[Rfam]
RNA sequence: AAAAAUGAUAGAGGCGCGGGCUUCAUGAGUACAGACUGAUACAGGUCGGAAACUGUCAGUCAGGGAAAGGGAAUACCGCCGAAGAGAUCCGGACAUUUCCGAAGAAAGGAUUUCUGGUCUGCCGCAGAAGAUGUGUCAGACUGUCACAGGACUGUGGAGAGCUAUCAUUGGU
Number, nucleotide and partner (000 for none) at each position: 001a000002a000003a000004a000005a000006u167007g166008a165009u164010a163011g162012a000013g000014g000015c000016g079017c078018g077019g076020g000021c000022u073023u072024c071025a000026u000027g000028a000029g000030u000031a000032c063033a000034g061035a060036c059037u058038g057039a056040u000041a000042c000043a000044g000045g000046u000047c000048g000049g000050a000051a000052a000053c000054u000055g000056u039057c038058a037059g036060u035061c034062a000063g032064g000065g000066a000067a000068a000069g000070g000071g024072a023073a022074u000075a000076c019077c018078g017079c016080c000081g000082a000083a115084g114085a113086g112087a111088u110089c109090c108091g000092g000093a000094c104095a000096u000097u000098u000099c000100c000101g000102a000103a000104g094105a000106a000107a000108g090109g089110a088111u087112u086113u085114c084115u083116g142117g141118u140119c139120u138121g137122c000123c135124g134125c133126a132127g000128a000129a000130g000131a000132u126133g125134u124135g123136u000137c121138a120139g119140a118141c117142u116143g000144u157145c156146a155147c154148a153149g000150g000151a000152c000153u148154g147155u146156g145157g144158a000159g000160a000161g000162c011163u010164a009165u008166c007167a006168u000169u000170g000171g000172u000
Lysine riboswitch aptamer: a 172-nucleotide RNA sequence from Clostridiaceae bacterium OM08-6BH. The source organism's lineage runs through Bacteria, Bacillati, Bacillota, Clostridia and Clostridiaceae. The base pairs follow the family's consensus structure, which is taken from published work.